[Rfam]
RNA sequence: CCCAACAUUUCGCUUCGCUGCAUGUUGGGCUGAAAUCGCCCGUCCCUUCGGGACU
Numbered sequence: 001c002c003c004a005a006c007a008u009u010u011c012g013c014u015u016c017g018c019u020g021c022a023u024g025u026u027g028g029g030c031u032g033a034a035a036u037c038g039c040c041c042g043u044c045c046c047u048u049c050g051g052g053a054c055u
Stems, first nucleotide, its partner, number of pairs: 001029008042054005